The record is a 110-nucleotide sequence from Rhododendron simsii, which matches "Small nucleolar RNA snoR100" in Rfam. Rfam links the family to the GO terms nucleolus and RNA processing. By type it is an H/ACA-box small nucleolar RNA. Lineage of the source: Eukaryota > Streptophyta > Mesangiospermae > Pentapetalae > Rhododendron. It scores 70 bits against the family's covariance model.

[Rfam]
RNA sequence: CAAUAAAGGAAGCAUAAUAAUGUGCACAUAAAAAUUGAAUUGGGUCUCUAGGUCUAUCAUCUCUGAUGCCAUUUGGCUUUGAUUUGGGGGCAUGGUUCUACAGAAAACAC
Numbered sequence: 001c002a003a004u005a006a007a008g009g010a011a012g013c014a015u016a017a018u019a020a021u022g023u024g025c026a027c028a029u030a031a032a033a034a035u036u037g038a039a040u041u042g043g044g045u046c047u048c049u050a051g052g053u054c055u056a057u058c059a060u061c062u063c064u065g066a067u068g069c070c071a072u073u074u075g076g077c078u079u080u081g082a083u084u085u086g087g088g089g090g091c092a093u094g095g096u097u098c099u100a101c102a103g104a105a106a107a108c109a110c
Stems, first nucleotide, its partner, number of pairs: 012025004042093001044091003052083003057076002

The family's consensus secondary structure was predicted with WAR.